[Rfam]
RNA sequence: CUAGCGGUCACCGCAAGGUUCCUGUCGGACGACAGGCUAUCUUCUGCGGUCCCGCACUGCGGGCCGCAACCGGCAAUGCCGGCUUUUACUAACGGGCCGAUGAUGGCAUCGGU
Number, nucleotide and partner (000 for none) at each position: 001c000002u000003a000004g000005c000006g000007g000008u000009c000010a019011c018012c017013g000014c000015a000016a000017g012018g011019u010020u000021c036022c035023u034024g033025u032026c031027g000028g000029a000030c000031g026032a025033c024034a023035g022036g021037c000038u000039a000040u000041c000042u000043u000044c000045u068046g067047c066048g065049g064050u063051c062052c061053c000054g000055c000056a000057c000058u000059g000060c000061g052062g051063g050064c049065c048066g047067c046068a045069a000070c082071c081072g080073g079074c000075a000076a000077u000078g000079c073080c072081g071082g070083c000084u000085u000086u000087u000088a000089c000090u000091a000092a000093c000094g000095g000096g113097c112098c111099g110100a109101u108102g000103a000104u000105g000106g000107c000108a101109u100110c099111g098112g097113u096
Shown here is a 113-nucleotide RNA from Azotobacter vinelandii, a member of the family "Pseudomon-groES RNA". It is one of the family's seed sequences. The family's consensus secondary structure is taken from published work. By type it is a cis-regulatory element.